[Rfam]
RNA sequence: CAGUUCUUGUCGGGGUGCCUCACAUGAGAGGCUGAGAUCGGAUAUGUCCGGAUCCCGUUGAACCUGAUCAGGUUGAAGCCUGCGUAGGGAACAAGAUUGCUCGCUUC
Numbered sequence: 001c002a003g004u005u006c007u008u009g010u011c012g013g014g015g016u017g018c019c020u021c022a023c024a025u026g027a028g029a030g031g032c033u034g035a036g037a038u039c040g041g042a043u044a045u046g047u048c049c050g051g052a053u054c055c056c057g058u059u060g061a062a063c064c065u066g067a068u069c070a071g072g073u074u075g076a077a078g079c080c081u082g083c084g085u086a087g088g089g090a091a092c093a094a095g096a097u098u099g100c101u102c103g104c105u106u107c
Base pairs, nucleotide, nucleotide: 006095007094008093009092010091011057012056013055014054016051017032018031019030020029021028039050040049041048042047063088064087065086066085069082070081071080072079

The record is a 107-nucleotide RNA sequence from Pseudomonas sp. URIL14HWK12:I9, which matches "TPP riboswitch aptamer (THI element)" in Rfam. A search with the family's covariance model found it, with a score of 84 bits.